[Rfam]
RNA sequence: UGCUUACCAAUGAUGGCAUGGAAAAAAAAAUGUCUGAACAAAUGAUUUCAAUGUGAUAUCAUUGUUUUUUCUGAGGUAAGCA
Numbered sequence: 001u002g003c004u005u006a007c008c009a010a011u012g013a014u015g016g017c018a019u020g021g022a023a024a025a026a027a028a029a030a031u032g033u034c035u036g037a038a039c040a041a042a043u044g045a046u047u048u049c050a051a052u053g054u055g056a057u058a059u060c061a062u063u064g065u066u067u068u069u070u071c072u073g074a075g076g077u078a079a080g081c082a
Base pairs, nucleotide, nucleotide: 002081003080004079005078006077007076008075
Overview: Shown here is an 82-nucleotide sequence from Mola mola, a member of the family "Small nucleolar RNA SNORD72". About the family: snoRNA HBII-240 belongs to the CD family of snoRNAs. It scores 67 bits against the family's covariance model. The family has 16 seed sequences and 726 matches in Rfam 15.1.